RNA: Fluoride riboswitch aptamer (crcB RNA motif)
Organism: Candidimonas nitroreducens
RNA sequence: GCGCGCAACGGAGAUGGCAUUCCUCCUUGAACCGCCGGUACGCCGGCUGAUGAUGCCUACAGGUUU
Numbered sequence: 001g002c003g004c005g006c007a008a009c010g011g012a013g014a015u016g017g018c019a020u021u022c023c024u025c026c027u028u029g030a031a032c033c034g035c036c037g038g039u040a041c042g043c044c045g046g047c048u049g050a051u052g053a054u055g056c057c058u059a060c061a062g063g064u065u066u
Stems, first nucleotide, its partner, number of pairs: 010026004016057006034047004